A member of the RNA family "Trypanosomatid snoRNA TB6Cs1H4" from Trypanosoma conorhini, 73 nucleotides long.
[Rfam]
RNA sequence: CGCCUCAGAAUUACAGGUCCCUUGGCGGCUGUAUCCUUCGAUGCCGCUCCACAGGAUACCCACUGGGGCCAGA
Number, nucleotide and partner (000 for none) at each position: 001c000002g069003c068004c067005u066006c065007a064008g000009a000010a000011u000012u000013a000014c000015a000016g000017g057018u056019c055020c054021c000022u000023u000024g000025g047026c046027g045028g044029c043030u000031g000032u000033a000034u000035c000036c000037u000038u000039c000040g000041a000042u000043g029044c028045c027046g026047c025048u000049c000050c000051a000052c000053a000054g020055g019056a018057u017058a000059c000060c000061c000062a000063c000064u007065g006066g005067g004068g003069c002070c000071a000072g000073a000
By type it is an H/ACA-box small nucleolar RNA. Pairs were carried over by alignment from the consensus structure, which was predicted with WAR. A search with the family's covariance model found it, with a score of 89 bits.